Rfam assigns this 318-nucleotide part of an RNA from Paracyclopina nana to the family "Eukaryotic large subunit ribosomal RNA".

[Rfam]
RNA sequence: CGGAGGGGCUUUUGAAGUCGUGGGCAGUGGUUCAGGUUAGCGGUUCGGCGGCCUGGGGGUUUGGGAUCCGCAAGGACCCGGCCUCUUUGUUGGCUGGACUGUUGGCUGCACUUCACUGCUCACUCACGCAACGAACCACUCUAGUCGGACCAUGGCGGGGAUGAAGUUCUCGGGGCUUCGGCCUUGGGAGCUCCUCAGUCCGGGCUCUGGCCGGGGUGGGUAUUGGAGCAGUCUCGUAUAGCGAGUGUCCUUGCUGGCACGGGCUGCAUCUCAGUUGCGAGUAGGUCAGCGGCCCCUCUGACCCGUCUUGAAACACGG
Numbered sequence: 001c002g003g004a005g006g007g008g009c010u011u012u013u014g015a016a017g018u019c020g021u022g023g024g025c026a027g028u029g030g031u032u033c034a035g036g037u038u039a040g041c042g043g044u045u046c047g048g049c050g051g052c053c054u055g056g057g058g059g060u061u062u063g064g065g066a067u068c069c070g071c072a073a074g075g076a077c078c079c080g081g082c083c084u085c086u087u088u089g090u091u092g093g094c095u096g097g098a099c100u101g102u103u104g105g106c107u108g109c110a111c112u113u114c115a116c117u118g119c120u121c122a123c124u125c126a127c128g129c130a131a132c133g134a135a136c137c138a139c140u141c142u143a144g145u146c147g148g149a150c151c152a153u154g155g156c157g158g159g160g161a162u163g164a165a166g167u168u169c170u171c172g173g174g175g176c177u178u179c180g181g182c183c184u185u186g187g188g189a190g191c192u193c194c195u196c197a198g199u200c201c202g203g204g205c206u207c208u209g210g211c212c213g214g215g216g217u218g219g220g221u222a223u224u225g226g227a228g229c230a231g232u233c234u235c236g237u238a239u240a241g242c243g244a245g246u247g248u249c250c251u252u253g254c255u256g257g258c259a260c261g262g263g264c265u266g267c268a269u270c271u272c273a274g275u276u277g278c279g280a281g282u283a284g285g286u287c288a289g290c291g292g293c294c295c296c297u298c299u300g301a302c303c304c305g306u307c308u309u310g311a312a313a314c315a316c317g318g
Base pairs, nucleotide, nucleotide: 001300002299003298004297005296006295007294008293009292010291011289012288017124020123021122022121023120024119025118026117027116028115029114030113125281127279128278129277130276131275303318304317305316306315

Source information:
Its family is annotated with structural constituent of ribosome and ribosome in the Gene Ontology.